[Rfam]
RNA sequence: GCGUGGGUCAGCCCGUCGCGUGGCACGUCGGGCUGGGGGAAAUGCCACUGCCCCACAUCCCCGCGGGCAGUGGACAGGGUCCGGGAGGUGGCUGUGCCUCCCGGACUUUGCA
Numbered sequence: 001g002c003g004u005g006g007g008u009c010a011g012c013c014c015g016u017c018g019c020g021u022g023g024c025a026c027g028u029c030g031g032g033c034u035g036g037g038g039g040a041a042a043u044g045c046c047a048c049u050g051c052c053c054c055a056c057a058u059c060c061c062c063g064c065g066g067g068c069a070g071u072g073g074a075c076a077g078g079g080u081c082c083g084g085g086a087g088g089u090g091g092c093u094g095u096g097c098c099u100c101c102c103g104g105a106c107u108u109u110g111c112a
Stems, first nucleotide, its partner, number of pairs: 001111002007075002009035007017027002036043001045073009056063001077109001079106012
This 112-nucleotide RNA sequence from Streptomyces tardus belongs to the Rfam family "Streptomyces RNA 4115". The family's RNA type in Rfam is small RNA.